[Rfam]
RNA sequence: GGCCUUUGUGUUGCCCGUUCACUUUCUAAGUAGCGAAUGAGGUGUCAGAAAAGGCCUAAAAGAAUCUCCCUCAUGGUCACCUCUUGUUCUUCAGAGUGCGACUGUGAUGGAACAUUU
Numbered sequence: 001g002g003c004c005u006u007u008g009u010g011u012u013g014c015c016c017g018u019u020c021a022c023u024u025u026c027u028a029a030g031u032a033g034c035g036a037a038u039g040a041g042g043u044g045u046c047a048g049a050a051a052a053g054g055c056c057u058a059a060a061a062g063a064a065u066c067u068c069c070c071u072c073a074u075g076g077u078c079a080c081c082u083c084u085u086g087u088u089c090u091u092c093a094g095a096g097u098g099c100g101a102c103u104g105u106g107a108u109g110g111a112a113c114a115u116u117u
Base pairs, nucleotide, nucleotide: 002055003054004053005052006051007050009047010046012044013043014042015041016039017038018037019036020035022033023032068110069109071107072106073105074104075103076102077101080098081096082095083094084093
Rfam assigns this 117-nucleotide RNA sequence from Xenopus laevis to the family "Small nucleolar RNA SNORA13".
NCBI's taxonomy places the organism under Eukaryota, Metazoa, Euteleostomi, Xenopodinae, Xenopus.
ACA13 is a member of the H/ACA class of snoRNA that guide the sites of modification of uridines to pseudouridines.
The family has 50 seed sequences and 1,034 matches in Rfam 15.1.
Gene Ontology terms of the family: RNA processing and nucleolus.
The family is grouped with related families in Rfam's "SNORA13 clan".
It is annotated as an H/ACA-box small nucleolar RNA.